[Rfam]
RNA sequence: UAACUGCGAACACCAAGGAUGGAGGCGGGGGACCCAACCGGUCCACCGAAUUACGGACCAGGGGCCUUUUGGCUCCUUGGGGUGAAGCCGUCGCCGUUUCGGCGUCGACGGCCGGGUGACCUCUCCCACCCGAACCCGACAGCUGACCUCGUGGGCGCAUACGAGAGGACCU
Numbered sequence: 001u002a003a004c005u006g007c008g009a010a011c012a013c014c015a016a017g018g019a020u021g022g023a024g025g026c027g028g029g030g031g032a033c034c035c036a037a038c039c040g041g042u043c044c045a046c047c048g049a050a051u052u053a054c055g056g057a058c059c060a061g062g063g064g065c066c067u068u069u070u071g072g073c074u075c076c077u078u079g080g081g082g083u084g085a086a087g088c089c090g091u092c093g094c095c096g097u098u099u100c101g102g103c104g105u106c107g108a109c110g111g112c113c114g115g116g117u118g119a120c121c122u123c124u125c126c127c128a129c130c131c132g133a134a135c136c137c138g139a140c141a142g143c144u145g146a147c148c149u150c151g152u153g154g155g156c157g158c159a160u161a162c163g164a165g166a167g168g169a170c171c172u
Base pairs, nucleotide, nucleotide: 004024005023025152026151027150028149029148030147035079036078080137081136082135088111089110090109091108092107093106114131115130116129117128
RNA: c-di-AMP riboswitch aptamer (ydaO/yuaA leader)
Organism: Mycolicibacterium smegmatis